A member of the RNA family "FMN riboswitch aptamer (RFN element)" from Mediterraneibacter sp. gm002, 135 nucleotides long. It scores 100 bits against the family's covariance model.
RNA sequence: GAAAUUCUUCGGGGUAGGGUGCAAGUCCCAACCGGCGGUAUAGUCCGCGACCCACAUAAGUGGUUGAAUUGGUGACUCAUAAGUUUGAUGAGAAUUCCAGUACCGACAGUAAAGUCUGGAUGAGAGAAGAAAUUG
Numbered sequence: 001g002a003a004a005u006u007c008u009u010c011g012g013g014g015u016a017g018g019g020u021g022c023a024a025g026u027c028c029c030a031a032c033c034g035g036c037g038g039u040a041u042a043g044u045c046c047g048c049g050a051c052c053c054a055c056a057u058a059a060g061u062g063g064u065u066g067a068a069u070u071g072g073u074g075a076c077u078c079a080u081a082a083g084u085u086u087g088a089u090g091a092g093a094a095u096u097c098c099a100g101u102a103c104c105g106a107c108a109g110u111a112a113a114g115u116c117u118g119g120a121u122g123a124g125a126g127a128a129g130a131a132a133u134u135g
Base pairs, nucleotide, nucleotide: 003133005131006130007129008128009127010126017029018028019027031115032114033105034104035048036047037046038045043103044102052063053062068101069100070099071098072097107118108117109116